RNA sequence: ACACCACAGGAUGAAGUGAGCGGGCCUAACCAGCCCUGGAAAGUCCCCGGGCCUCAUGCGCAGCGAUGCGCCCACGGAGACGUGGACGGCCCACGAGCUGGCUCUCCCCGCCUCCUCGGUGGGGGGCAGAGACACGAGUGGAGCCCAAUUUUAAGGGAGCCGGCUCUGGGUCAAAUGGCCAAAACUCUUCUCCUCACAGUUAUUCACUUGGUCCAUCAUCUUCUGGACUAACAGAACGGGGCUUACACUCCUGUGGCA
Numbered sequence: 001a002c003a004c005c006a007c008a009g010g011a012u013g014a015a016g017u018g019a020g021c022g023g024g025c026c027u028a029a030c031c032a033g034c035c036c037u038g039g040a041a042a043g044u045c046c047c048c049g050g051g052c053c054u055c056a057u058g059c060g061c062a063g064c065g066a067u068g069c070g071c072c073c074a075c076g077g078a079g080a081c082g083u084g085g086a087c088g089g090c091c092c093a094c095g096a097g098c099u100g101g102c103u104c105u106c107c108c109c110g111c112c113u114c115c116u117c118g119g120u121g122g123g124g125g126g127c128a129g130a131g132a133c134a135c136g137a138g139u140g141g142a143g144c145c146c147a148a149u150u151u152u153a154a155g156g157g158a159g160c161c162g163g164c165u166c167u168g169g170g171u172c173a174a175a176u177g178g179c180c181a182a183a184a185c186u187c188u189u190c191u192c193c194u195c196a197c198a199g200u201u202a203u204u205c206a207c208u209u210g211g212u213c214c215a216u217c218a219u220c221u222u223c224u225g226g227a228c229u230a231a232c233a234g235a236a237c238g239g240g241g242c243u244u245a246c247a248c249u250c251c252u253g254u255g256g257c258a
Stems, first nucleotide, its partner, number of pairs: 004256008014209006022036004041244003045241004059070004072085005088180003096165005112159004124146004134139001211228005
This 258-nucleotide sequence from Paspalum vaginatum belongs to the Rfam family "RNase MRP". The source organism's lineage runs through Eukaryota, Embryophyta, Spermatophyta, Petrosaviidae and Paspalum. A search with the family's covariance model found it, with a score of 80 bits. RNase MRP is an enzymatically active ribonucleoprotein with two distinct roles in eukaryotes.